RNA sequence: UUGCAUUCCAUUCGUAUUAGAUAAGCCAGCAAUAAAAAAGCGGUAGAACCAUCCACAACUGUGGGCUUUUUUGUUGUGCUUAAUUUUACGAAUUGGGACAUGGAUACUGGCGAGGAGUAGCCUUUUGUGGCUAUCCCUUUCUCUGGCGUGUCUUUUUCUCGUUGAUUAUGCAGACCCAAGCCCGCAUUGCUGACUUGUGGCCUGCAUUUUUUAU
Numbered sequence: 001u002u003g004c005a006u007u008c009c010a011u012u013c014g015u016a017u018u019a020g021a022u023a024a025g026c027c028a029g030c031a032a033u034a035a036a037a038a039a040g041c042g043g044u045a046g047a048a049c050c051a052u053c054c055a056c057a058a059c060u061g062u063g064g065g066c067u068u069u070u071u072u073g074u075u076g077u078g079c080u081u082a083a084u085u086u087u088a089c090g091a092a093u094u095g096g097g098a099c100a101u102g103g104a105u106a107c108u109g110g111c112g113a114g115g116a117g118u119a120g121c122c123u124u125u126u127g128u129g130g131c132u133a134u135c136c137c138u139u140u141c142u143c144u145g146g147c148g149u150g151u152c153u154u155u156u157u158c159u160c161g162u163u164g165a166u167u168a169u170g171c172a173g174a175c176c177c178a179a180g181c182c183c184g185c186a187u188u189g190c191u192g193a194c195u196u197g198u199g200g201c202c203u204g205c206a207u208u209u210u211u212u213a214u
Base pairs, nucleotide, nucleotide: 006098007097008096009095010094012092013090014089015088019085020084022082023081024080025079026078029077030076031075032074033073034072035071036070037069038068039067043066044065049064050063051062052061099150100149101148102147103143104142106140112139113138114137115136168207169206170205171204172203173202175200176199178196179195180194182192184190185189
Shown here is a 214-nucleotide RNA from Sporomusa termitida, a member of the family "Enterococcus sRNA 1300". The organism belongs to Sporomusa, within Bacteria. Rfam describes the family as follows. Expressed in mid and late exponential phases of growth. Expression remained uniform under daptomycin exposure. It scores 87 bits against the family's covariance model. Rfam classes the family as a small RNA.